[Rfam]
RNA sequence: AAAUUCCUAUGACAACGAGAGAAAGCACGCAUGUAGACAGUCAUUUAUAUAUCCUCUUGCAUGAAUGCCGACUCGCGUGCUCUCUCUCGUUGUCAAUAGAUC
Dot-bracket structure: .........(((((.((..((...((((((..((....................................))..))))))...))..)).))))).......
The family of this 102-nucleotide sequence from Aquilegia coerulea is "MIR535 microRNA precursor family". A reference for the family is Zeng et al. (2010), "Conservation and divergence of microRNAs and their functions in Euphorbiaceous plants", Nucleic Acids Res. A search with the family's covariance model found it, with a score of 65 bits.